Notes
The record is a 356-nucleotide part of an RNA from Theileria orientalis, which matches "Eukaryotic large subunit ribosomal RNA" in Rfam. The match comes from Rfam's covariance-model search (3119 bits).

RNA sequence: CUUGACGUUGUGACAGUAAUCCAAUUUAGUACGAGAGGAACAGUUGGUUCGGAUACUUGGUUAAUGCAGCUAGUUGAAAAGCUAGUGCUGCGAAGCUACCAUCCGUUGGAUAAUGACUGAACGCCUCUAAGUCAGAAUCCAUGCUGAAUAUCAACGUUUUUCACCGCUUCUGGUGUUUUCGUAACACUAUAUGCAGGUUUUACCUCAUUUCCUUUGCAGCUCUGCUGAUAUCACAAUUCCUAACUUCAGAAGCGAUACAUCCAUUGCAGACGACUUUGACGCACCCGGGUAUUGUAAGCGCGAGAGUAGGCUUGUCUUACGAUCCGCUGAGAUUCAGCCCGCGGUGUUCGAUGUGU
Numbered sequence: 001c002u003u004g005a006c007g008u009u010g011u012g013a014c015a016g017u018a019a020u021c022c023a024a025u026u027u028a029g030u031a032c033g034a035g036a037g038g039a040a041c042a043g044u045u046g047g048u049u050c051g052g053a054u055a056c057u058u059g060g061u062u063a064a065u066g067c068a069g070c071u072a073g074u075u076g077a078a079a080a081g082c083u084a085g086u087g088c089u090g091c092g093a094a095g096c097u098a099c100c101a102u103c104c105g106u107u108g109g110a111u112a113a114u115g116a117c118u119g120a121a122c123g124c125c126u127c128u129a130a131g132u133c134a135g136a137a138u139c140c141a142u143g144c145u146g147a148a149u150a151u152c153a154a155c156g157u158u159u160u161u162c163a164c165c166g167c168u169u170c171u172g173g174u175g176u177u178u179u180c181g182u183a184a185c186a187c188u189a190u191a192u193g194c195a196g197g198u199u200u201u202a203c204c205u206c207a208u209u210u211c212c213u214u215u216g217c218a219g220c221u222c223u224g225c226u227g228a229u230a231u232c233a234c235a236a237u238u239c240c241u242a243a244c245u246u247c248a249g250a251a252g253c254g255a256u257a258c259a260u261c262c263a264u265u266g267c268a269g270a271c272g273a274c275u276u277u278g279a280c281g282c283a284c285c286c287g288g289g290u291a292u293u294g295u296a297a298g299c300g301c302g303a304g305a306g307u308a309g310g311c312u313u314g315u316c317u318u319a320c321g322a323u324c325c326g327c328u329g330a331g332a333u334u335c336a337g338c339c340c341g342c343g344g345u346g347u348u349c350g351a352u353g354u355g356u
Stems, first nucleotide, its partner, number of pairs: 004158007014146004019049001021047006050105005058098003065092005070085006107141003114134005166253007257354005262278002266274001282346004287340003291333002298327003303323001306320005